[Rfam]
RNA sequence: UGUGUAAUAUAAGUAUGUCCUAUGCAAUAUUUAAGAUGUACUUAUAUUAAAA
Numbered sequence: 001u002g003u004g005u006a007a008u009a010u011a012a013g014u015a016u017g018u019c020c021u022a023u024g025c026a027a028u029a030u031u032u033a034a035g036a037u038g039u040a041c042u043u044a045u046a047u048u049a050a051a052a
Stems, first nucleotide, its partner, number of pairs: 006048007014040003018036002021033001022031001
A member of the RNA family "mir-1302 microRNA precursor family" from Diceros bicornis, 52 nucleotides long.
The family has 24 seed sequences and 16,160 matches in Rfam 15.1.